[Rfam]
RNA sequence: ACAGUACAAACUGAGCAGGCGAUGAACUUGUAUACAAGUUCAUGGGGCCGGGCCUUAAUUGGCAGCAGGAAGGAUUAAAUACCUGUGGGACAGUA
Numbered sequence: 001a002c003a004g005u006a007c008a009a010a011c012u013g014a015g016c017a018g019g020c021g022a023u024g025a026a027c028u029u030g031u032a033u034a035c036a037a038g039u040u041c042a043u044g045g046g047g048c049c050g051g052g053c054c055u056u057a058a059u060u061g062g063c064a065g066c067a068g069g070a071a072g073g074a075u076u077a078a079a080u081a082c083c084u085g086u087g088g089g090a091c092a093g094u095a
Base pairs, nucleotide, nucleotide: 010094011093012092013091016089018049019048020047022043023042024041025040026039027038052063053062054061065086066085067084068083069082
Dot-bracket structure: .........((((..(.(((.((((((..........))))))...)))..(((......))).(((((............)))))..).)))).
Shown here is a 95-nucleotide RNA from Clostridium botulinum, a member of the family "NiCo (Nickel/Cobalt) riboswitch aptamer".
On this family, see Furukawa et al., Mol Cell 2015: "Bacterial riboswitches cooperatively bind Ni(2+) or Co(2+) ions and control expression of heavy metal transporters".
The family is grouped with related families in Rfam's "NiCo_riboswitches".